Source information: A member of the RNA family "MIR2617 microRNA precursor family" from Medicago truncatula, 84 nucleotides long.

RNA sequence: AUGUAGUGUAGCAUGCCCGAUUGGUGAAUUACUCUGAUAAAUAUUUUAUAUUUAAUUACUUUUGGUAACAGGGUGUUACAUAUA
Numbered sequence: 001a002u003g004u005a006g007u008g009u010a011g012c013a014u015g016c017c018c019g020a021u022u023g024g025u026g027a028a029u030u031a032c033u034c035u036g037a038u039a040a041a042u043a044u045u046u047u048a049u050a051u052u053u054a055a056u057u058a059c060u061u062u063u064g065g066u067a068a069c070a071g072g073g074u075g076u077u078a079c080a081u082a083u084a
Base pairs, nucleotide, nucleotide: 002084003083004082005081007080008079009078010077011076012075013074014073016072017071019069021067

Description: The family's consensus secondary structure was predicted with RNAalifold.